[Rfam]
RNA sequence: CGUACUGUUUUGCUGAAUCUCAUUUAUGAGAGCGGAGGAUAAAAAUGGGGUGAAUUGGGAUAAACCCAUAGGGCACUCUCUGUCCGAACCCGACAACUAACUUCGUAAGCGUAAGAGAGGAGAGUA
Number, nucleotide and partner (000 for none) at each position: 001c000002g000003u000004a000005c000006u000007g000008u000009u000010u000011u111012g110013c109014u108015g000016a000017a000018u031019c030020u029021c000022a000023u000024u000025u000026a000027u000028g000029a020030g019031a018032g106033c105034g104035g103036a102037g101038g000039a000040u047041a046042a000043a000044a000045a000046u041047g040048g091049g090050g089051u000052g000053a000054a000055u000056u068057g067058g066059g065060a000061u000062a000063a000064a000065c059066c058067c057068a056069u000070a000071g085072g084073g083074c082075a000076c000077u000078c000079u000080c000081u000082g074083u073084c072085c071086g000087a000088a000089c050090c049091c048092g000093a000094c000095a000096a000097c000098u000099a000100a000101c037102u036103u035104c034105g033106u032107a000108a014109g013110c012111g011112u000113a000114a000115g000116a000117g000118a000119g000120g000121a000122g000123a000124g000125u000126a000